[Rfam]
RNA sequence: GAAGAAUCUAUUUGCAGCCAAGCCUGCGCAUUACCGUGCGCAGGGGAGGGCUCAGAAAAGAGGAAUCU
Dot-bracket structure: ..........(((..((((...(((((((((....)))))))))....)))).)))............
A member of the RNA family "ilvH RNA" from Hydrogenophaga sp. A37, 68 nucleotides long. Rfam classes the family as a cis-regulatory element. The match comes from Rfam's covariance-model search (83 bits).